[Rfam]
The family of this 98-nucleotide RNA sequence from Triplophysa tibetana is "Small nucleolar RNA SNORD16".
The family has 5 seed sequences and 1,321 matches in Rfam 15.1.
The literature on the family includes a 1993 paper in EMBO J by Fragapane et al., "A novel small nucleolar RNA (U16) is encoded inside a ribosomal protein intron and originates by processing of the pre-mRNA".
The family is grouped with related families in Rfam's "SNORD16 clan".
Pairs were carried over by alignment from the consensus structure, which was predicted with PFOLD.
Its family is annotated with nucleolus and RNA processing in the Gene Ontology.
It scores 95 bits against the family's covariance model.
Lineage of the source: Eukaryota > Metazoa > Deuterostomia > Neopterygii > Triplophysa.

RNA sequence: UGCAAUGAUGGUGUAAUUUGCGUCGUACUCUGUGUUCAGUGACAGUUGCCUGCUGUCUUGUGCUGGCACAGAAGGUUGAUGAAAAUACAAACUGAGCA
Numbered sequence: 001u002g003c004a005a006u007g008a009u010g011g012u013g014u015a016a017u018u019u020g021c022g023u024c025g026u027a028c029u030c031u032g033u034g035u036u037c038a039g040u041g042a043c044a045g046u047u048g049c050c051u052g053c054u055g056u057c058u059u060g061u062g063c064u065g066g067c068a069c070a071g072a073a074g075g076u077u078g079a080u081g082a083a084a085a086u087a088c089a090a091a092c093u094g095a096g097c098a
Base pairs, nucleotide, nucleotide: 001098002097003096021081022080023079024078030071031070032069033068034067039063040062041057042056043055044054045053